[Rfam]
RNA sequence: AACUUAUCUAGAGAGGUGGAGGGAUGGGCCCAAUGAAACCCGGCAACCGGCUGAUAAGCCACGGUGCCAAUUCCUACAGAAAGAUUCUGAAAGAUGAGUG
Numbered sequence: 001a002a003c004u005u006a007u008c009u010a011g012a013g014a015g016g017u018g019g020a021g022g023g024a025u026g027g028g029c030c031c032a033a034u035g036a037a038a039c040c041c042g043g044c045a046a047c048c049g050g051c052u053g054a055u056a057a058g059c060c061a062c063g064g065u066g067c068c069a070a071u072u073c074c075u076a077c078a079g080a081a082a083g084a085u086u087c088u089g090a091a092a093g094a095u096g097a098g099u100g
Base pairs, nucleotide, nucleotide: 002099003098004097005096006095007094008093013041015040016039017038021031022030023029025076026075027074028073042068043067044066045065047064048063049060050059051058052057072092077089078088079087080086081085

This 100-nucleotide RNA sequence from Garciella nitratireducens belongs to the Rfam family "SAM riboswitch aptamer (S box leader)". About the family: The SAM riboswitch is found upstream of a number of genes which code for proteins involved in methionine or cysteine biosynthesis in Gram-positive bacteria. A search with the family's covariance model found it, with a score of 92 bits. A reference for the family is Rodionov et al. (2004), "Comparative genomics of the methionine metabolism in Gram-positive bacteria: a variety of regulatory systems", Nucleic Acids Res.